RNA sequence: ACAGGAUCCCGGAAGAGAUGUCCGGGUGGCUCUUCCGGCCGCUGACCCGCCGGAUCAUG
Numbered sequence: 001a002c003a004g005g006a007u008c009c010c011g012g013a014a015g016a017g018a019u020g021u022c023c024g025g026g027u028g029g030c031u032c033u034u035c036c037g038g039c040c041g042c043u044g045a046c047c048c049g050c051c052g053g054a055u056c057a058u059g
Base pairs, nucleotide, nucleotide: 006027007026009025010024011023012022014019034054035053036052037051038050039049